Overview:
The family of this 74-nucleotide RNA sequence from Lacrimispora xylanisolvens is "tRNA". Lineage of the source: Bacteria > Clostridia > Lachnospirales > Lachnospiraceae > Lacrimispora. It scores 60 bits against the family's covariance model.
RNA sequence: GGCGGAAUAGCUCAGUUGGCCAGAGCACACGGUUCAUACCCGUGGUGUCGAGAGUUCGAAUCUCCCUUCCGCUA
Numbered sequence: 001g002g003c004g005g006a007a008u009a010g011c012u013c014a015g016u017u018g019g020c021c022a023g024a025g026c027a028c029a030c031g032g033u034u035c036a037u038a039c040c041c042g043u044g045g046u047g048u049c050g051a052g053a054g055u056u057c058g059a060a061u062c063u064c065c066c067u068u069c070c071g072c073u074a
Stems, first nucleotide, its partner, number of pairs: 001073007010026004028044005050066001052064003